Shown here is an 80-nucleotide RNA from Myotis lucifugus, a member of the family "mir-9186 microRNA precursor family". Gene Ontology terms of the family: RISC complex and miRNA-mediated post-transcriptional gene silencing. The organism belongs to Myotis, within Eukaryota. A search with the family's covariance model found it, with a score of 76 bits.
Nucleotides: 080
Base pairs, nucleotide, nucleotide: 001078002077003076004075005074007072008071009070010069013066014065017062018061019060020059023056024055025054027052028051029050030049031048
Number, partner (000 for none) and nucleotide at each position: 001078u002077a003076g004075g005074g006000g007072g008071a009070g010069g011000u012000u013066g014065g015000c016000a017062g018061c019060g020059u021000g022000u023056c024055u025054g026000a027052u028051a029050c030049u031048g032000a033000g034000c035000u036000g037000a038000u039000g040000g041000c042000u043000g044000c045000g046000c047000a048031c049030a050029g051028u052027a053000c054025c055024a056023g057000c058000c059020a060019u061018g062017c063000c064000a065014c066013c067000u068000c069010c070009c071008u072007c073000c074005c075004c076003c077002u078001a079000c080000a